HNH endonuclease-associated RNA and ORF (HEARO) RNA: a 266-nucleotide sequence from Ligilactobacillus equi. The literature on the family includes a 2009 paper in Nature by Weinberg et al., "Exceptional structured noncoding RNAs revealed by bacterial metagenome analysis". It is annotated as a non-coding RNA gene.
RNA sequence: AACAGUAACCCCUCACUAAAGUAAGGGGCUUGAAAUGAAAGUUUUAAGUCUGCUCACUUUGAUGAGGAUUCUGGAGCAAUCCAGAAUUUGUUGUCUAGACUAAGCAGUCAGCUUCGGCUGACUGGGAAACUACGUUAUUUUAGUCAUCAUACCUUAGGAUGAUGCCCUAGUUCUAAGCUCUAUGGAGGCUCUGUAAACAAUCGUAAGGUUAAUGCGAUAGUCAACCUUGUUAACAAGCUAAAAUAACAUUGUCGAAGGGUAACCAC
Numbered sequence: 001a002a003c004a005g006u007a008a009c010c011c012c013u014c015a016c017u018a019a020a021g022u023a024a025g026g027g028g029c030u031u032g033a034a035a036u037g038a039a040a041g042u043u044u045u046a047a048g049u050c051u052g053c054u055c056a057c058u059u060u061g062a063u064g065a066g067g068a069u070u071c072u073g074g075a076g077c078a079a080u081c082c083a084g085a086a087u088u089u090g091u092u093g094u095c096u097a098g099a100c101u102a103a104g105c106a107g108u109c110a111g112c113u114u115c116g117g118c119u120g121a122c123u124g125g126g127a128a129a130c131u132a133c134g135u136u137a138u139u140u141u142a143g144u145c146a147u148c149a150u151a152c153c154u155u156a157g158g159a160u161g162a163u164g165c166c167c168u169a170g171u172u173c174u175a176a177g178c179u180c181u182a183u184g185g186a187g188g189c190u191c192u193g194u195a196a197a198c199a200a201u202c203g204u205a206a207g208g209u210u211a212a213u214g215c216g217a218u219a220g221u222c223a224a225c226c227u228u229g230u231u232a233a234c235a236a237g238c239u240a241a242a243a244u245a246a247c248a249u250u251g252u253c254g255a256a257g258g259g260u261a262a263c264c265a266c
Stems, first nucleotide, its partner, number of pairs: 002094007010028002012025002015022002029048008098253003102249001103131002134247011149183002153177008163261006185228004192223002197221002200218006